[Rfam]
RNA sequence: AAGACCGUACUUACUAGGAUCAUUUCUAUAGUACGCGUCCCGUCUUUGUAACCUUACAGAGACAACCACGAUACCCACGGUGACGAUGCAUAGCGUGAUCCUCUGGGCGCGAAGCACGUCGAGGGCAUUGCCUUGAUUGGCGAGUCGCCACCGACGAUUGAUGACCGUUCCUCCCUGCCUAUUAGUGGCUGGGAGGGGGAGGAUCACGCAUUCAGAGUGGG
Numbered sequence: 001a002a003g004a005c006c007g008u009a010c011u012u013a014c015u016a017g018g019a020u021c022a023u024u025u026c027u028a029u030a031g032u033a034c035g036c037g038u039c040c041c042g043u044c045u046u047u048g049u050a051a052c053c054u055u056a057c058a059g060a061g062a063c064a065a066c067c068a069c070g071a072u073a074c075c076c077a078c079g080g081u082g083a084c085g086a087u088g089c090a091u092a093g094c095g096u097g098a099u100c101c102u103c104u105g106g107g108c109g110c111g112a113a114g115c116a117c118g119u120c121g122a123g124g125g126c127a128u129u130g131c132c133u134u135g136a137u138u139g140g141c142g143a144g145u146c147g148c149c150a151c152c153g154a155c156g157a158u159u160g161a162u163g164a165c166c167g168u169u170c171c172u173c174c175c176u177g178c179c180u181a182u183u184a185g186u187g188g189c190u191g192g193g194a195g196g197g198g199g200a201g202g203a204u205c206a207c208g209c210a211u212u213c214a215g216a217g218u219g220g221g
Stems, first nucleotide, its partner, number of pairs: 003039003006035006015028005046059005074221005093209012107168003117156004124149003128143004172194004177189003

Shown here is a 221-nucleotide sequence from Nematostella vectensis, a member of the family "Small nucleolar RNA U3". Its family is annotated with nucleolus and RNA processing in the Gene Ontology. Pairs were carried over by alignment from the consensus structure, which is taken from published work. Small nucleolar RNAs (snoRNAs) are involved in the processing and modification of rRNA in the nucleolus. There are two main classes of snoRNAs: the box C/D class, and the box H/ACA class. Rfam 15.1 lists 19,072 matches to the family in 1,215 species.